[Rfam]
RNA: FMN riboswitch aptamer (RFN element)
RNA sequence: CGACGUCUUCAGGGCGGGGUGGAACUCCCCACCGGCGGUAGGCCUUUCGAGGCGAGCCCGCGAGCGCCUCCGGCACCGCCGGAGGGUCAGCAGAUCCGGUCCAAUGCCGGAGCCGACGGUCACGCUGCGCCCGGCCUGCCGGGACGGCCCACAGUCCGGAUGGAAGAAGACGGCA
Numbered sequence: 001c002g003a004c005g006u007c008u009u010c011a012g013g014g015c016g017g018g019g020u021g022g023a024a025c026u027c028c029c030c031a032c033c034g035g036c037g038g039u040a041g042g043c044c045u046u047u048c049g050a051g052g053c054g055a056g057c058c059c060g061c062g063a064g065c066g067c068c069u070c071c072g073g074c075a076c077c078g079c080c081g082g083a084g085g086g087u088c089a090g091c092a093g094a095u096c097c098g099g100u101c102c103a104a105u106g107c108c109g110g111a112g113c114c115g116a117c118g119g120u121c122a123c124g125c126u127g128c129g130c131c132c133g134g135c136c137u138g139c140c141g142g143g144a145c146g147g148c149c150c151a152c153a154g155u156c157c158g159g160a161u162g163g164a165a166g167a168a169g170a171c172g173g174c175a
Stems, first nucleotide, its partner, number of pairs: 004172007017029003033115002035061004056113002064091002095111005117158003